[Rfam]
RNA sequence: AACAAGGGGACAUCCGCGAUCGCCCCGUGAGGCUUCGGCUGAAGCAUCGCGUCCGACACUCCACAAUGAUGGAGGGGACGCUCAUG
Numbered sequence: 001a002a003c004a005a006g007g008g009g010a011c012a013u014c015c016g017c018g019a020u021c022g023c024c025c026c027g028u029g030a031g032g033c034u035u036c037g038g039c040u041g042a043a044g045c046a047u048c049g050c051g052u053c054c055g056a057c058a059c060u061c062c063a064c065a066a067u068g069a070u071g072g073a074g075g076g077g078a079c080g081c082u083c084a085u086g
Stems, first nucleotide, its partner, number of pairs: 006026004049081006

Annotation
Rfam assigns this 86-nucleotide RNA sequence from Acetobacteraceae bacterium AT-5844 to the family "chrB-a RNA". The base pairs follow the family's consensus structure, which is taken from published work. Rfam classes the family as a cis-regulatory element.